The record is a 137-nucleotide RNA from Neisseria shayeganii, which matches "Y RNA-like" in Rfam. Taxonomically the source falls in Neisseria shayeganii (Bacteria, Pseudomonadota, Neisseriaceae, Neisseria). About the family: In Deinococcus radiodurans Rsr is tethered via Y RNA to the exoribonuclease PNPase and channels single-stranded RNA into the PNPase cavity. Rsr and Y RNA enhance degradation of structured RNAs by PNPase. For this family Rfam cites "An RNA degradation machine sculpted by Ro autoantigen and noncoding RNA" (Chen et al., Cell, 2013).
[Rfam]
Nucleotides: 137
Base pairs, nucleotide, nucleotide: 002133003132004131005130006129007128013119014118015117016116017115018114019113038107039106045061046060047059048058049057062085063084064083065082066081067080068079069078088104089103090102091101
Number, partner (000 for none) and nucleotide at each position: 001000u002133g003132c004131a005130c006129a007128a008000a009000u010000g011000c012000c013119g014118a015117a016116g017115g018114a019113a020000u021000u022000a023000c024000a025000g026000c027000u028000u029000g030000u031000a032000g033000a034000c035000g036000c037000u038107c039106g040000a041000g042000g043000u044000u045061g046060c047059g048058g049057g050000u051000u052000c053000g054000a055000g056000u057049c058048c059047c060046g061045u062085c063084u064083c065082u066081g067080c068079c069078g070000c071000c072000a073000c074000a075000c076000u077000a078069u079068g080067g081066c082065a083064g084063a085062g086000u087000a088104g089103c090102u091101c092000a093000a094000u095000c096000g097000g098000a099000u100000a101091g102090a103089g104088c105000g106039c107038g108000a109000a110000a111000u112000a113019u114018u115017u116016c117015u118014u119013c120000a121000a122000u123000c124000c125000u126000u127000g128007u129006u130005g131004u132003g133002c134000g135000g136000c137000g